[Rfam]
RNA: Small nucleolar RNA SNORD74
Organism: Takifugu flavidus
RNA sequence: CCCAUGCGCACAUGAUGAAAUAAGUGUUGGUAGGGACAUCUGAGUUAAGGUGAAGAAAUGCCAACUCUUCUGACUUCAUGGG
Numbered sequence: 001c002c003c004a005u006g007c008g009c010a011c012a013u014g015a016u017g018a019a020a021u022a023a024g025u026g027u028u029g030g031u032a033g034g035g036a037c038a039u040c041u042g043a044g045u046u047a048a049g050g051u052g053a054a055g056a057a058a059u060g061c062c063a064a065c066u067c068u069u070c071u072g073a074c075u076u077c078a079u080g081g082g
Base pairs, nucleotide, nucleotide: 001082002081003080004079005078